[Rfam]
RNA sequence: UGCAAAUGAUUUUCUCACGAUGGUCUUCCAAGCCCCAAGGGCUCUGACGAUAAUGCCUUAAGGCUAUGCUGAUGCAGCCCC
Numbered sequence: 001u002g003c004a005a006a007u008g009a010u011u012u013u014c015u016c017a018c019g020a021u022g023g024u025c026u027u028c029c030a031a032g033c034c035c036c037a038a039g040g041g042c043u044c045u046g047a048c049g050a051u052a053a054u055g056c057c058u059u060a061a062g063g064c065u066a067u068g069c070u071g072a073u074g075c076a077g078c079c080c081c
Base pairs, nucleotide, nucleotide: 001076002075003074004073
The record is an 81-nucleotide RNA sequence from Clupea harengus, which matches "Small nucleolar RNA SNORD35" in Rfam. The family has 8 seed sequences and 1,842 matches in Rfam 15.1. From the family's description: U35 is a C/D box snoRNA located in intron 6 of ribosomal protein L13A and intron 3 of ribosomal protein S11 in humans and at homologous positions in mouse and chicken ribosomal protein genes. U35 guides the methylation of 2'-O-ribose sites in 28S rRNA. The literature on the family includes a 1996 paper in J Mol Biol by Nicoloso et al., "Intron-encoded, antisense small nucleolar RNAs: the characterization of nine novel species points to their direct role as guides for the 2'-O-ribose methylation of rRNAs". Clan: SNORD35 clan. A search with the family's covariance model found it, with a score of 59 bits.